This 351-nucleotide sequence from Cloacibacillus porcorum belongs to the Rfam family "Bacterial RNase P class A".
Rfam describes the family as follows. Ribonuclease P (RNase P) is a ubiquitous endoribonuclease, found in archaea, bacteria and eukarya as well as chloroplasts and mitochondria.
The family's consensus secondary structure is taken from published work.
Lineage of the source: Bacteria > Thermotogati > Synergistales > Synergistaceae > Cloacibacillus.
It is annotated as a ribozyme.
A search with the family's covariance model found it, with a score of 259 bits.
[Rfam]
RNA sequence: GGAGUAUCUAAUCCAGCCGCCGGCGCAUCGCGCGGGAGGAAAGUCCGGGCUCCAAAGGGCAGGAUGCAGGAGAAAUUCCUGCGGGUGCGAACCCAGGGAAAGUGCCGCAGAAAAGCAAACCGCCGCGGCGACGCGGUAAGGGUGAAAAGGCGGGGUAAGAGCCCACCGGCCGUCAGGGGAACCUGCGGGCCUGGCAAACCCCAUCCGGAGCAAGGUCGAAUAGGGAAGGCUGAGGCGGCCCGCUGACUUCCGGGUACGACCGCUCAUUCCCGUAUGCAAGUACGGGGUUAGAUAAAUGGCUGGAGGGAGCGCAAGCUCUUUACAAAACCCGGCUUACUGGGUGCUCCGUAC
Numbered sequence: 001g002g003a004g005u006a007u008c009u010a011a012u013c014c015a016g017c018c019g020c021c022g023g024c025g026c027a028u029c030g031c032g033c034g035g036g037a038g039g040a041a042a043g044u045c046c047g048g049g050c051u052c053c054a055a056a057g058g059g060c061a062g063g064a065u066g067c068a069g070g071a072g073a074a075a076u077u078c079c080u081g082c083g084g085g086u087g088c089g090a091a092c093c094c095a096g097g098g099a100a101a102g103u104g105c106c107g108c109a110g111a112a113a114a115g116c117a118a119a120c121c122g123c124c125g126c127g128g129c130g131a132c133g134c135g136g137u138a139a140g141g142g143u144g145a146a147a148a149g150g151c152g153g154g155g156u157a158a159g160a161g162c163c164c165a166c167c168g169g170c171c172g173u174c175a176g177g178g179g180a181a182c183c184u185g186c187g188g189g190c191c192u193g194g195c196a197a198a199c200c201c202c203a204u205c206c207g208g209a210g211c212a213a214g215g216u217c218g219a220a221u222a223g224g225g226a227a228g229g230c231u232g233a234g235g236c237g238g239c240c241c242g243c244u245g246a247c248u249u250c251c252g253g254g255u256a257c258g259a260c261c262g263c264u265c266a267u268u269c270c271c272g273u274a275u276g277c278a279a280g281u282a283c284g285g286g287g288u289u290a291g292a293u294a295a296a297u298g299g300c301u302g303g304a305g306g307g308a309g310c311g312c313a314a315g316c317u318c319u320u321u322a323c324a325a326a327a328c329c330c331g332g333c334u335u336a337c338u339g340g341g342u343g344c345u346c347c348g349u350a351c
Stems, first nucleotide, its partner, number of pairs: 001347010012304007020036002023033004041335003045332005050210004057241004062206005067081005082096001083094004097201002102199002104195003120141002122137006149167002152164003169190001170188003174185004214261004224251005234244003268287008
Dot-bracket structure: ((((((((((.(((((((.((.((((...)))).))....[[[.[[[[[((((...[[[[.((((((((((.....)))))(((((....)))).)((...(((((.............((((((((....))))))..)).......((.(((.......))).)).((((.((((....))))))).)..)))..)))))))))))))...((((......(((((.....(((.]]]])))..)))))......))))......((((((((....))))))))..........))))))).......................]]]]]]]]..))))))))))....